The record is a 35-nucleotide RNA from Robiginitalea biformata, which matches "DUF805b RNA" in Rfam. Rfam classes the family as a cis-regulatory element. The sequence is in the family's curated seed alignment. Taxonomically the source falls in Robiginitalea biformata (Bacteria, Bacteroidota, Flavobacteriales, Robiginitalea). The family's consensus secondary structure is taken from published work.

RNA sequence: CGGGAGGAUUCCGAAAAUCCGGAAAAGAGUAGGAG
Numbered sequence: 001c002g003g004g005a006g007g008a009u010u011c012c013g014a015a016a017a018u019c020c021g022g023a024a025a026a027g028a029g030u031a032g033g034a035g
Stems, first nucleotide, its partner, number of pairs: 003020003010034003
Dot-bracket structure: ..(((....[[[.....)))...........]]].